[Rfam]
RNA sequence: CAGCAAUAUGGAGAGUACGGCGAGUGGCCAAAUGAGGUAACUAAGCCAUUGCAGCCAGCUCGGUAUAUAGCUCAUGAUCUGGGGGAUCCAGUUAUUAAGCCGGGUGAAAAGCCACCAAAAAGCGCCGCCCAUCAGCACGAUGUUCAUGAGUAAAGGAAGGAUAACGAAACGUCGGAUACCAGGCAGUGAGAUCAGGCGCCAUCCGGCAAGAAAAUAGUGUAUACCACUGCGAGUUUGGUCUGCUGUAUUGCCGUAAGGCGGUUUUUCGGAAGACAUUGUGACAAUGUUCUCAGUCAUUUGUUUGUUGAGGCAUCAUAUCGGGAUGAUCUUAUGCUGGCUAGCCCAUAUUUGGAUGAAAAAACAGCAAAAAAAUGCGUUCUAUCUAUCUUUAUUGCCAUAAAGUACCGCGCAGGCUUGCACUUGUGUACUCAGGCAAAUAGAGU
Numbered sequence: 001c002a003g004c005a006a007u008a009u010g011g012a013g014a015g016u017a018c019g020g021c022g023a024g025u026g027g028c029c030a031a032a033u034g035a036g037g038u039a040a041c042u043a044a045g046c047c048a049u050u051g052c053a054g055c056c057a058g059c060u061c062g063g064u065a066u067a068u069a070g071c072u073c074a075u076g077a078u079c080u081g082g083g084g085g086a087u088c089c090a091g092u093u094a095u096u097a098a099g100c101c102g103g104g105u106g107a108a109a110a111g112c113c114a115c116c117a118a119a120a121a122g123c124g125c126c127g128c129c130c131a132u133c134a135g136c137a138c139g140a141u142g143u144u145c146a147u148g149a150g151u152a153a154a155g156g157a158a159g160g161a162u163a164a165c166g167a168a169a170c171g172u173c174g175g176a177u178a179c180c181a182g183g184c185a186g187u188g189a190g191a192u193c194a195g196g197c198g199c200c201a202u203c204c205g206g207c208a209a210g211a212a213a214a215u216a217g218u219g220u221a222u223a224c225c226a227c228u229g230c231g232a233g234u235u236u237g238g239u240c241u242g243c244u245g246u247a248u249u250g251c252c253g254u255a256a257g258g259c260g261g262u263u264u265u266u267c268g269g270a271a272g273a274c275a276u277u278g279u280g281a282c283a284a285u286g287u288u289c290u291c292a293g294u295c296a297u298u299u300g301u302u303u304g305u306u307g308a309g310g311c312a313u314c315a316u317a318u319c320g321g322g323a324u325g326a327u328c329u330u331a332u333g334c335u336g337g338c339u340a341g342c343c344c345a346u347a348u349u350u351g352g353a354u355g356a357a358a359a360a361a362c363a364g365c366a367a368a369a370a371a372a373u374g375c376g377u378u379c380u381a382u383c384u385a386u387c388u389u390u391a392u393u394g395c396c397a398u399a400a401a402g403u404a405c406c407g408c409g410c411a412g413g414c415u416u417g418c419a420c421u422u423g424u425g426u427a428c429u430c431a432g433g434c435a436a437a438u439a440g441a442g443u
Stems, first nucleotide, its partner, number of pairs: 008132004018127005023042003027038003044072003048068002055063002074095005081088002103116004135410002138407002141404004146398003150392007158384002161380001163378004169373001171207007182197001186193001214254002217251003221248004227242001229239002260328004265323003269319002275316002278313003282309001286305002291300003332366005339360001343352003413434005419426002